[Rfam]
RNA sequence: AACCCCCGGAUUACGUCGAAACUUUGGUCGGUGUCCACGUAUAUCCAAGGGUCAAAAGCAGGCUGCGCGCCUGUAAGGAAGUAUACUGUAUGCGUACUCUACGUCAAUCCCCCUGCCGACCCU
Numbered sequence: 001a002a003c004c005c006c007c008g009g010a011u012u013a014c015g016u017c018g019a020a021a022c023u024u025u026g027g028u029c030g031g032u033g034u035c036c037a038c039g040u041a042u043a044u045c046c047a048a049g050g051g052u053c054a055a056a057a058g059c060a061g062g063c064u065g066c067g068c069g070c071c072u073g074u075a076a077g078g079a080a081g082u083a084u085a086c087u088g089u090a091u092g093c094g095u096a097c098u099c100u101a102c103g104u105c106a107a108u109c110c111c112c113c114u115g116c117c118g119a120c121c122c123u
Stems, first nucleotide, its partner, number of pairs: 002052004008046004012041005018035001020034001024119005030113002
Rfam assigns this 123-nucleotide sequence from Klebsiella pneumoniae to the family "Pseudoknot of the regulatory region of the repBA gene". A search with the family's covariance model found it, with a score of 58 bits. NCBI's taxonomy places the organism under Bacteria, Pseudomonadota, Enterobacterales, Enterobacteriaceae, Klebsiella pneumoniae. The base pairs follow the family's consensus structure, which is taken from published work. A reference for the family is Athanasopoulos et al. (1995), "The replication of an IncL/M plasmid is subject to antisense control", J Bacteriol.